[Rfam]
RNA sequence: UAUUAUCUUCAGGGCAGGGUGAAAUUCCCGAUCGGCGGUAAAGUCCGCGAGUGUGAAAGCACAGGAUUCAGCAGAUAUUUUGUCUGAAUCAGGAUUUGGUGAGAUUCCAAAACCGACAGUAUAGUCUGGAUGGGAGAAGAUAUGA
Numbered sequence: 001u002a003u004u005a006u007c008u009u010c011a012g013g014g015c016a017g018g019g020u021g022a023a024a025u026u027c028c029c030g031a032u033c034g035g036c037g038g039u040a041a042a043g044u045c046c047g048c049g050a051g052u053g054u055g056a057a058a059g060c061a062c063a064g065g066a067u068u069c070a071g072c073a074g075a076u077a078u079u080u081u082g083u084c085u086g087a088a089u090c091a092g093g094a095u096u097u098g099g100u101g102a103g104a105u106u107c108c109a110a111a112a113c114c115g116a117c118a119g120u121a122u123a124g125u126c127u128g129g130a131u132g133g134g135a136g137a138a139g140a141u142a143u144g145a
Stems, first nucleotide, its partner, number of pairs: 004142007017029003031125002033115002035048004043113002053089001095111005117128003
RNA: FMN riboswitch aptamer (RFN element)